RNA sequence: ACCGCUGAGCCACCUUCCCAGCCCUACAUUUAUAUUUUAUAAAUAGACAUGUAUGUGUGGGGCUGGGAAGGUGGCUCAGUGGU
Numbered sequence: 001a002c003c004g005c006u007g008a009g010c011c012a013c014c015u016u017c018c019c020a021g022c023c024c025u026a027c028a029u030u031u032a033u034a035u036u037u038u039a040u041a042a043a044u045a046g047a048c049a050u051g052u053a054u055g056u057g058u059g060g061g062g063c064u065g066g067g068a069a070g071g072u073g074g075c076u077c078a079g080u081g082g083u
Stems, first nucleotide, its partner, number of pairs: 002082025
The record is an 83-nucleotide RNA sequence from Dipodomys ordii, which matches "mir-3473 microRNA precursor family" in Rfam. NCBI's taxonomy places the organism under Eukaryota, Bilateria, Sarcopterygii, Mammalia, Dipodomys.